[Rfam]
RNA sequence: AACCCAAUAGUAUGGUAGAAAAAAAAUAUGAAUAUUUCUACCAUACUAUCUAUACCUAUUAAUGUAAUGUAGAAAGAUAAGGAA
Numbered sequence: 001a002a003c004c005c006a007a008u009a010g011u012a013u014g015g016u017a018g019a020a021a022a023a024a025a026a027u028a029u030g031a032a033u034a035u036u037u038c039u040a041c042c043a044u045a046c047u048a049u050c051u052a053u054a055c056c057u058a059u060u061a062a063u064g065u066a067a068u069g070u071a072g073a074a075a076g077a078u079a080a081g082g083a084a
Stems, first nucleotide, its partner, number of pairs: 007049015023033001
Shown here is an 84-nucleotide RNA sequence from Gossypium gossypioides, a member of the family "Plastid-psbM 3UTR RNA". On this family, see Richter et al., Plant Commun 2023: "Retrograde signaling in plants: A critical review focusing on the GUN pathway and beyond". The source organism's lineage runs through Eukaryota, Streptophytina, Mesangiospermae, malvids and Gossypium. The family's RNA type in Rfam is cis-regulatory element. Rfam's curators write: Plastid psbM is a non-coding RNA (ncRNA) recognised in plastids. It was found in the three prime untranslated region (3UTR) of psbM gene, its 3UTR location suggests a role in transcript maturation.